[Rfam]
RNA sequence: GUGAAAUGAUGAUUCAGUUUAUCCAUUCGCUGAGUGCGCUACGCUGACCUUCUUCCAGGUCUCAGUUCCUGUUCUGGGAACUUAGGCUAUGUAGCCUCCAAAUGCCCUGCGGUCUUGCUGUGUUCUACAGUGGACAGCUUGUGUGUUGGUAGACUACUGGUAAGAAUGGUUGGUGUCAGCAGAGAUGGGUCCCUCUGGGUCCCAUCUCACCGAGAUGAGUGGUGGAAAUCUGAUCAC
Numbered sequence: 001g002u003g004a005a006a007u008g009a010u011g012a013u014u015c016a017g018u019u020u021a022u023c024c025a026u027u028c029g030c031u032g033a034g035u036g037c038g039c040u041a042c043g044c045u046g047a048c049c050u051u052c053u054u055c056c057a058g059g060u061c062u063c064a065g066u067u068c069c070u071g072u073u074c075u076g077g078g079a080a081c082u083u084a085g086g087c088u089a090u091g092u093a094g095c096c097u098c099c100a101a102a103u104g105c106c107c108u109g110c111g112g113u114c115u116u117g118c119u120g121u122g123u124u125c126u127a128c129a130g131u132g133g134a135c136a137g138c139u140u141g142u143g144u145g146u147u148g149g150u151a152g153a154c155u156a157c158u159g160g161u162a163a164g165a166a167u168g169g170u171u172g173g174u175g176u177c178a179g180c181a182g183a184g185a186u187g188g189g190u191c192c193c194u195c196u197g198g199g200u201c202c203c204a205u206c207u208c209a210c211c212g213a214g215a216u217g218a219g220u221g222g223u224g225g226a227a228a229u230c231u232g233a234u235c236a237c
Base pairs, nucleotide, nucleotide: 010236011235012234013233014232017229018228019227020226023222024221025220026219027218028217029216030214031213034210035209038180039179040178042175043174044173045172046171047170048169049168050166051165052164053163054162055160056159058088059087060086061085062084064082065081066080067079068078069077070076091157092156093155094154096152097151104144105143106141109138110137112135113134114133116132117131118130119129120128121127122126182208183207184206185205186204187203188202189201191199192198
The record is a 237-nucleotide sequence from Loxodonta africana, which matches "Small nucleolar RNA SNORD17" in Rfam. The family's RNA type in Rfam is C/D-box small nucleolar RNA. It scores 240 bits against the family's covariance model. For this family Rfam cites "RNomics: an experimental approach that identifies 201 candidates for novel, small, non-messenger RNAs in mouse" (Huttenhofer et al., EMBO J, 2001). Rfam describes the family as follows. The snoRNA HBI-43 belongs to the C/D family of snoRNAs, guiding 2'O-ribose methylation at position U3797 of the 28S rRNA. Pseudouridylation in position U3797 is predicted to be guided by the H/ACA snoRNA ACA48.